[Rfam]
RNA sequence: GCACCAAAUCUUUCCCAUUCCUUACUGCGUGGUGUGGGCCUGGGGACACAUGGUGCUGACAGCAAAGCAGAGCAAAUCCAGACAGGUGCCAUCUCAUUCCGUGACUGCCUGCCUCUACACCUCUGCAACAGUG
Numbered sequence: 001g002c003a004c005c006a007a008a009u010c011u012u013u014c015c016c017a018u019u020c021c022u023u024a025c026u027g028c029g030u031g032g033u034g035u036g037g038g039c040c041u042g043g044g045g046a047c048a049c050a051u052g053g054u055g056c057u058g059a060c061a062g063c064a065a066a067g068c069a070g071a072g073c074a075a076a077u078c079c080a081g082a083c084a085g086g087u088g089c090c091a092u093c094u095c096a097u098u099c100c101g102u103g104a105c106u107g108c109c110u111g112c113c114u115c116u117a118c119a120c121c122u123c124u125g126c127a128a129c130a131g132u133g
Stems, first nucleotide, its partner, number of pairs: 001056005012046006020038002067126006080114002083111005094104002
RNA: Small nucleolar RNA SNORA55
Organism: Jacana jacana